Shown here is a 464-nucleotide RNA sequence from Chromobacterium sp. LK11, a member of the family "Bacterial RNase P class A". Taxonomically the source falls in Chromobacterium (Bacteria, Pseudomonadati, Neisseriales, Chromobacteriaceae). It scores 258 bits against the family's covariance model. The family is grouped with related families in Rfam's "RNaseP clan".

RNA sequence: GAAGUUGGCCAGGCAGUCGCUGCGUUCGUUCGCAAGAACGGACGGGGAGGAAAGUCCGGGCUCCGCAGAGCAGGAUGCCGGUUAAUGGCCGGACGUCGUGAGGCGAUGGAAAGUGGCGCAGAGAGCUGAACCGCCGAUGGCCGGAGGAAGCGUUCGCAAGAACGCGGACUCUUGAUUUCGCCGCGCAAGCGGCGGGACGGAUCAGGCAAGGGUGAAAAGGUGUACUGGCCGGGCGAGAGUCCGGUCGGACAGAUAGGGUGUGGUGCCCUAUUCUGCGGUAAGAGCGCACCGCGGACGUGGUAACACGGACGGCAGGCAAAACCCCAUCCGGAGCAAGACCAAAUAGGGGGAAUUGACGUUGCUCGCGUAUAUCCCCGGGUAGGUCGCUUGAGCCUGUCGGUAACGGCAGGCCUAGAGGAAUGACUGUCCAACGACAAGACCCGGCUUAUCGGCCAACUUCCACC
Numbered sequence: 001g002a003a004g005u006u007g008g009c010c011a012g013g014c015a016g017u018c019g020c021u022g023c024g025u026u027c028g029u030u031c032g033c034a035a036g037a038a039c040g041g042a043c044g045g046g047g048a049g050g051a052a053a054g055u056c057c058g059g060g061c062u063c064c065g066c067a068g069a070g071c072a073g074g075a076u077g078c079c080g081g082u083u084a085a086u087g088g089c090c091g092g093a094c095g096u097c098g099u100g101a102g103g104c105g106a107u108g109g110a111a112a113g114u115g116g117c118g119c120a121g122a123g124a125g126c127u128g129a130a131c132c133g134c135c136g137a138u139g140g141c142c143g144g145a146g147g148a149a150g151c152g153u154u155c156g157c158a159a160g161a162a163c164g165c166g167g168a169c170u171c172u173u174g175a176u177u178u179c180g181c182c183g184c185g186c187a188a189g190c191g192g193c194g195g196g197a198c199g200g201a202u203c204a205g206g207c208a209a210g211g212g213u214g215a216a217a218a219g220g221u222g223u224a225c226u227g228g229c230c231g232g233g234c235g236a237g238a239g240u241c242c243g244g245u246c247g248g249a250c251a252g253a254u255a256g257g258g259u260g261u262g263g264u265g266c267c268c269u270a271u272u273c274u275g276c277g278g279u280a281a282g283a284g285c286g287c288a289c290c291g292c293g294g295a296c297g298u299g300g301u302a303a304c305a306c307g308g309a310c311g312g313c314a315g316g317c318a319a320a321a322c323c324c325c326a327u328c329c330g331g332a333g334c335a336a337g338a339c340c341a342a343a344u345a346g347g348g349g350g351a352a353u354u355g356a357c358g359u360u361g362c363u364c365g366c367g368u369a370u371a372u373c374c375c376c377g378g379g380u381a382g383g384u385c386g387c388u389u390g391a392g393c394c395u396g397u398c399g400g401u402a403a404c405g406g407c408a409g410g411c412c413u414a415g416a417g418g419a420a421u422g423a424c425u426g427u428c429c430a431a432c433g434a435c436a437a438g439a440c441c442c443g444g445c446u447u448a449u450c451g452g453c454c455a456a457c458u459u460c461c462a463c464c
Stems, first nucleotide, its partner, number of pairs: 001460010011449001012428007020047002023044008052447003056444005061333004068364004073329005078092005093107001094105004108324002113322002116317002131211002133207003138204003142200001219290005291313001292311002296307004337385004347376005356368004392411008